Record summary: The record is an 85-nucleotide RNA sequence from Prolemur simus, which matches "mir-571 microRNA precursor family" in Rfam.
RNA sequence: AGUGGGACCAAGUUAAUUGGGUCAUUUCCUGAUCUUUAGCCAAGACCAGGGGUCUUCAAGUUUGCCACCUGAAUUAGGGCCUGUC
Numbered sequence: 001a002g003u004g005g006g007a008c009c010a011a012g013u014u015a016a017u018u019g020g021g022u023c024a025u026u027u028c029c030u031g032a033u034c035u036u037u038a039g040c041c042a043a044g045a046c047c048a049g050g051g052g053u054c055u056u057c058a059a060g061u062u063u064g065c066c067a068c069c070u071g072a073a074u075u076a077g078g079g080c081c082u083g084u085c
Stems, first nucleotide, its partner, number of pairs: 002084003006080001008078002012074003016070001018067002021065002024062001026060002032053006039046001